[Rfam]
mir-393 microRNA precursor family: a 91-nucleotide RNA from Genlisea aurea.
RNA sequence: GAUGGAGAACUCCAAAGGGAUCGCAUUGAUCCCGGCCUAUCUAUCUCUCUAUUCUUCGUUCGGAUCAUGCGAUCCUUUCGGAAUUCUCCGU
Numbered sequence: 001g002a003u004g005g006a007g008a009a010c011u012c013c014a015a016a017g018g019g020a021u022c023g024c025a026u027u028g029a030u031c032c033c034g035g036c037c038u039a040u041c042u043a044u045c046u047c048u049c050u051a052u053u054c055u056u057c058g059u060u061c062g063g064a065u066c067a068u069g070c071g072a073u074c075c076u077u078u079c080g081g082a083a084u085u086c087u088c089c090g091u
Stems, first nucleotide, its partner, number of pairs: 002091005008085002011082003015078007023070004028066005
A search with the family's covariance model found it, with a score of 77 bits. Lineage of the source: Eukaryota > Viridiplantae > Euphyllophyta > Magnoliopsida > Genlisea. Its family is annotated with RISC complex and miRNA-mediated post-transcriptional gene silencing in the Gene Ontology.